A member of the RNA family "mir-305 microRNA precursor family" from Coptotermes formosanus, 73 nucleotides long. A search with the family's covariance model found it, with a score of 78 bits. On this family, see Weaver et al., Genome Biol 2007: "Computational and transcriptional evidence for microRNAs in the honey bee genome". The source organism's lineage runs through Eukaryota, Metazoa, Protostomia, Dicondylia and Coptotermes. The family's consensus secondary structure was predicted with RNAalifold.
[Rfam]
RNA sequence: CAUAUUCAUUGUACUUCAUCAGGUGCUCUGGUAGGUUCGGUAUCCCGGCACCUGUUGGAGUGCAAUCGAUAGG
Numbered sequence: 001c002a003u004a005u006u007c008a009u010u011g012u013a014c015u016u017c018a019u020c021a022g023g024u025g026c027u028c029u030g031g032u033a034g035g036u037u038c039g040g041u042a043u044c045c046c047g048g049c050a051c052c053u054g055u056u057g058g059a060g061u062g063c064a065a066u067c068g069a070u071a072g073g
Stems, first nucleotide, its partner, number of pairs: 001073001003071002010064003014060005020054002023051005030045002